RNA sequence: UGUGCCGGGGUGGGCAGACCCUAAGGCCCUAAGGCCAACUAACCCUAAUGGCGGCUGCGCCCCUCAGACCCACCCGCUGUUUUACUCGCUGACUUUCAGCGGGCAAAGGGAGCGGCCUAGGGAAAGGGGGGAGGAUGGGGGGGAAAAGAGUUCCGGCCUCAAAAAAAGCCAGCGAGGGGGAUCCACACCCCGGCCCACCCUGGGGUCCCUGUCCCUCCUGCGCAGCCAGGGGUGGUCCCGCCCUCGCCCCUCGUGAAGGCCGCGGUCGGCAGGCUCAGCGCCGCUGCCGCCGCGAAGAGUUCGUCUCUGUCAGCCUCGGCGGAGGCCGGGACCAGAGGGCCGGCCCGCCCACCCUGGGCAGCCGGGGGACCCCAGCAGAGCAAAACGGGCGCGGCGCCGCCGGGCGCUGAGCAGCCGCGGCUCCCUAAGACGUGGAGUGCGCGGUCGGCGCCGCCCCGACAGCC
Number, nucleotide and partner (000 for none) at each position: 001u000002g000003u000004g194005c193006c192007g191008g190009g189010g188011u187012g186013g000014g184015c000016a182017g000018a000019c180020c179021c178022u177023a000024a000025g000026g000027c000028c000029c000030u000031a000032a000033g000034g000035c000036c000037a000038a000039c000040u000041a000042a000043c000044c000045c000046u000047a000048a000049u000050g000051g000052c000053g000054g000055c000056u000057g000058c000059g113060c112061c000062c110063c109064u000065c000066a000067g000068a000069c000070c000071c000072a000073c103074c102075c101076g100077c099078u098079g097080u000081u000082u000083u000084a000085c000086u000087c000088g173089c172090u171091g170092a000093c168094u166095u165096u164097c079098a078099g077100c076101g075102g074103g073104c000105a000106a000107a000108g000109g063110g062111a000112g060113c059114g000115g000116c000117c000118u000119a000120g000121g000122g000123a000124a000125a000126g000127g000128g000129g000130g000131g000132a000133g000134g000135a000136u000137g000138g000139g000140g000141g000142g000143g000144a000145a000146a000147a000148g000149a000150g000151u000152u000153c000154c000155g000156g000157c000158c000159u000160c000161a000162a000163a000164a096165a095166a094167a000168g093169c000170c091171a090172g089173c088174g000175a000176g000177g022178g021179g020180g019181a000182u016183c000184c014185a000186c012187a011188c010189c009190c008191c007192g006193g005194c004195c000196c000197a000198c000199c000200c375201u374202g373203g372204g371205g370206u369207c000208c000209c000210u000211g000212u000213c000214c000215c000216u000217c000218c000219u000220g000221c000222g000223c000224a000225g000226c000227c000228a000229g000230g000231g345232g344233u343234g333235g332236u331237c330238c329239c328240g327241c000242c000243c000244u322245c321246g320247c319248c000249c000250c000251u000252c000253g000254u000255g000256a000257a000258g000259g000260c000261c294262g293263c292264g291265g290266u000267c289268g288269g287270c286271a000272g282273g281274c280275u000276c000277a000278g000279c000280g274281c273282c272283g000284c000285u000286g270287c269288c268289g267290c265291c264292g263293c262294g261295a000296a308297g307298a306299g305300u000301u000302c000303g000304u000305c299306u298307c297308u296309g000310u000311c000312a000313g000314c000315c000316u000317c000318g000319g247320c246321g245322g244323a000324g000325g000326c000327c240328g239329g238330g237331a236332c235333c234334a000335g000336a000337g000338g000339g000340c000341c000342g000343g233344c232345c231346c000347g000348c000349c000350c000351a000352c000353c000354c000355u000356g000357g000358g000359c000360a000361g000362c000363c000364g000365g000366g000367g000368g000369a206370c205371c204372c203373c202374a201375g200376c000377a000378g000379a000380g000381c000382a000383a000384a000385a000386c000387g456388g455389g454390c453391g000392c000393g452394g451395c450396g449397c448398c447399g000400c000401c000402g000403g000404g000405c000406g000407c000408u000409g000410a000411g000412c000413a000414g000415c444416c443417g442418c441419g440420g000421c000422u437423c000424c435425c434426u000427a000428a000429g000430a000431c000432g000433u000434g425435g424436a000437g422438u000439g000440c419441g418442c417443g416444g415445u000446c000447g398448g397449c396450g395451c394452c393453g390454c389455c388456c387457c000458g000459a000460c000461a000462g000463c000464c000
Description: A member of the RNA family "Vertebrate telomerase RNA" from Nicator chloris, 464 nucleotides long. Taxonomically the source falls in Nicator (Eukaryota, Craniata, Gnathostomata, Neoaves). By type it is a non-coding RNA gene. Clan: Telomerase clan. On this family, see Chen et al., Cell 2000: "Secondary structure of vertebrate telomerase RNA".